[Rfam]
RNA sequence: GCGGUGCUGCGGGGUGCGUCAGGAUACUAGAAUCCCCGGGCCCUUACGAUUCCGAACGGGAGCUGUCCCUGGCCUCGACCGUGGUCUUGGUCAUUUACGGCGCCCACCUACUCUGUAGGUGUCCCGGGAUCAAAAACUCCAACGGCCAUCGUGGCUCCGCA
Numbered sequence: 001g002c003g004g005u006g007c008u009g010c011g012g013g014g015u016g017c018g019u020c021a022g023g024a025u026a027c028u029a030g031a032a033u034c035c036c037c038g039g040g041c042c043c044u045u046a047c048g049a050u051u052c053c054g055a056a057c058g059g060g061a062g063c064u065g066u067c068c069c070u071g072g073c074c075u076c077g078a079c080c081g082u083g084g085u086c087u088u089g090g091u092c093a094u095u096u097a098c099g100g101c102g103c104c105c106a107c108c109u110a111c112u113c114u115g116u117a118g119g120u121g122u123c124c125c126g127g128g129a130u131c132a133a134a135a136a137c138u139c140c141a142a143c144g145g146c147c148a149u150c151g152u153g154g155c156u157c158c159g160c161a
Stems, first nucleotide, its partner, number of pairs: 002159003006155006013147003017144003033129004038124003041119002058105003062101005071092004
RNA: 6S / SsrS RNA
Organism: Hansschlegelia plantiphila